RNA sequence: CGAACCCGCGCGGGAGAGUCCCCGGCGAGCAGGGCGCGAAACCGCGAGCAGGGCCUCUUGAGGGCCCGCGAGCGGGACGCGACGCCGCACGCCAGGGCGCCGAAGGAGCAAGAUCCUCCCUUGAAUCUCUCAGGCCCCGAUACCGUGCGGGCGAG
Numbered sequence: 001c002g003a004a005c006c007c008g009c010g011c012g013g014g015a016g017a018g019u020c021c022c023c024g025g026c027g028a029g030c031a032g033g034g035c036g037c038g039a040a041a042c043c044g045c046g047a048g049c050a051g052g053g054c055c056u057c058u059u060g061a062g063g064g065c066c067c068g069c070g071a072g073c074g075g076g077a078c079g080c081g082a083c084g085c086c087g088c089a090c091g092c093c094a095g096g097g098c099g100c101c102g103a104a105g106g107a108g109c110a111a112g113a114u115c116c117u118c119c120c121u122u123g124a125a126u127c128u129c130u131c132a133g134g135c136c137c138c139g140a141u142a143c144c145g146u147g148c149g150g151g152c153g154a155g
Stems, first nucleotide, its partner, number of pairs: 006150008020097003099135003102131002106129003112122002

Glycine riboswitch aptamer: a 155-nucleotide RNA from Streptomyces diacarni. A search with the family's covariance model found it, with a score of 47 bits. The base pairs follow the family's consensus structure.